[Rfam]
RNA sequence: UUCAGAUCGAUGAUGUUAUAUUUACUGCGUUAUCUACCUUAAUAUCUCCGAAAUAGGAGUUGCAGAAACUAAACAAAAACGCUGAGAUCUGAU
Number, nucleotide and partner (000 for none) at each position: 001u000002u092003c091004a090005g089006a088007u087008c000009g000010a000011u000012g000013a000014u000015g000016u000017u000018a000019u000020a000021u000022u000023u000024a000025c000026u000027g000028c000029g000030u000031u000032a000033u000034c000035u000036a000037c000038c000039u000040u000041a000042a000043u000044a000045u000046c000047u000048c000049c000050g000051a000052a000053a000054u000055a000056g000057g000058a000059g000060u000061u000062g000063c000064a000065g000066a000067a000068a000069c000070u000071a000072a000073a000074c000075a000076a000077a000078a000079a000080c000081g000082c000083u000084g000085a000086g000087a007088u006089c005090u004091g003092a002093u000
The family of this 93-nucleotide RNA from Arabis nemorensis is "Small nucleolar RNA snoR27". A search with the family's covariance model found it, with a score of 66 bits. Rfam 15.1 lists 649 matches to the family in 212 species. Gene Ontology terms of the family: RNA processing and nucleolus. Clan: snR68 clan. Pairs were carried over by alignment from the consensus structure, which was predicted with WAR.